[Rfam]
RNA sequence: UCAACUGCUUUAGAGGCUUUAGCUGCCCGUAAAACGGCAACUAAUGUCCGAUAAGAGAGCUUUUGGCGACACCGUCAAAUUGCGGGAAACUCGCGAAGCAUUCUGCUACCAAGCCAACGUGUCGAAAGCCGUUAGUGGCCAGGCUAACUCCCUGGGUACGGUAAAAACGCAGUCUGUAUGUGACAAUCCGCAGCCAAGCUCCCCUGCUACGGCGAGGAGAAGGUUCAGAGACUAAAUGGCGGUGGGUCAGUGUAGUACCCGAAAACUGGUCGCUAUAACAGCUGGCUUAAGAUAUAGUCCGGGCCCUCUCGAAAGACUGUG
Numbered sequence: 001u002c003a004a005c006u007g008c009u010u011u012a013g014a015g016g017c018u019u020u021a022g023c024u025g026c027c028c029g030u031a032a033a034a035c036g037g038c039a040a041c042u043a044a045u046g047u048c049c050g051a052u053a054a055g056a057g058a059g060c061u062u063u064u065g066g067c068g069a070c071a072c073c074g075u076c077a078a079a080u081u082g083c084g085g086g087a088a089a090c091u092c093g094c095g096a097a098g099c100a101u102u103c104u105g106c107u108a109c110c111a112a113g114c115c116a117a118c119g120u121g122u123c124g125a126a127a128g129c130c131g132u133u134a135g136u137g138g139c140c141a142g143g144c145u146a147a148c149u150c151c152c153u154g155g156g157u158a159c160g161g162u163a164a165a166a167a168c169g170c171a172g173u174c175u176g177u178a179u180g181u182g183a184c185a186a187u188c189c190g191c192a193g194c195c196a197a198g199c200u201c202c203c204c205u206g207c208u209a210c211g212g213c214g215a216g217g218a219g220a221a222g223g224u225u226c227a228g229a230g231a232c233u234a235a236a237u238g239g240c241g242g243u244g245g246g247u248c249a250g251u252g253u254a255g256u257a258c259c260c261g262a263a264a265a266c267u268g269g270u271c272g273c274u275a276u277a278a279c280a281g282c283u284g285g286c287u288u289a290a291g292a293u294a295u296a297g298u299c300c301g302g303g304c305c306c307u308c309u310c311g312a313a314a315g316a317c318u319g320u321g
Stems, first nucleotide, its partner, number of pairs: 002025002035050003070244005076238002081192006091183005193224002200217002206213002228300001230299005246286006306319001309316002